[Rfam]
RNA sequence: GAUUCAGAAGCCCAACGUAAAGCCCUUUGACUUGUUGGCUGGCAACCGCCUGACGCAGACGGUGCCCUCAAAGGAAAAUCGGUCACCGGCCACAAGGUACGGUGAAAGAGCGUAUU
Dot-bracket structure: ((((....(..(((((....((........)).))))).)(((..(((.((.....)).))).)))..........))))..(((((((((....))).))))))...........